Annotation:
The family of this 121-nucleotide RNA from Chlorocebus sabaeus is "Y RNA". Lineage of the source: Eukaryota > Teleostomi > Eutheria > Primates > Chlorocebus.
RNA sequence: GGCUGGUCCAAAAGUAGUAAGUUAUCUCAAUGGAUUUUUUACAGUCAGUUAUAGAUCAAACCCCAUGUACUACUCUUCCCCUCUCCCCUCACUUCUCACUACUGCACUUGAUUAUUCUUUA
Numbered sequence: 001g002g003c004u005g006g007u008c009c010a011a012a013a014g015u016a017g018u019a020a021g022u023u024a025u026c027u028c029a030a031u032g033g034a035u036u037u038u039u040u041a042c043a044g045u046c047a048g049u050u051a052u053a054g055a056u057c058a059a060a061c062c063c064c065a066u067g068u069a070c071u072a073c074u075c076u077u078c079c080c081c082u083c084u085c086c087c088c089u090c091a092c093u094u095c096u097c098a099c100u101a102c103u104g105c106a107c108u109u110g111a112u113u114a115u116u117c118u119u120u121a
Stems, first nucleotide, its partner, number of pairs: 001117002004114005010109002014105002016100003020096002032079002
Rfam 15.1 lists 26,986 matches to the family in 650 species. It is annotated as a non-coding RNA gene.